Background:
Shown here is a 167-nucleotide sequence from Candidatus Electrothrix communis, a member of the family "Group II catalytic intron D1-D4-3". The literature on the family includes a 2001 paper in EMBO J by Chu et al., "Control of branch-site choice by a group II intron". A search with the family's covariance model found it, with a score of 84 bits. Rfam links the family to the GO term Group II intron splicing. The source organism's lineage runs through Bacteria, Pseudomonadati, Thermodesulfobacteriota, Desulfobulbaceae and Candidatus Electrothrix.
[Rfam]
RNA sequence: CCAAUGAGGGAUCUGAAGGAAGCCUUAGUCAAAUUUGCCACUUAAACUCGGUGUGAACCUCUGGUAGGCUUCGUAGAGGGGUGAGGUGCCUAUGAUCACCGAAACCCGAUAUCCUUUUCGUAACUCUGCGGGGUAAAGGAGGUAGGUGGGCAAUGAAAGUGCGUGAU
Numbered sequence: 001c002c003a004a005u006g007a008g009g010g011a012u013c014u015g016a017a018g019g020a021a022g023c024c025u026u027a028g029u030c031a032a033a034u035u036u037g038c039c040a041c042u043u044a045a046a047c048u049c050g051g052u053g054u055g056a057a058c059c060u061c062u063g064g065u066a067g068g069c070u071u072c073g074u075a076g077a078g079g080g081g082u083g084a085g086g087u088g089c090c091u092a093u094g095a096u097c098a099c100c101g102a103a104a105c106c107c108g109a110u111a112u113c114c115u116u117u118u119c120g121u122a123a124c125u126c127u128g129c130g131g132g133g134u135a136a137a138g139g140a141g142g143u144a145g146g147u148g149g150g151c152a153a154u155g156a157a158a159g160u161g162c163g164u165g166a167u
Stems, first nucleotide, its partner, number of pairs: 022167001024165001026163001030159001035153005040147005058142005068134003072130007079107004085100004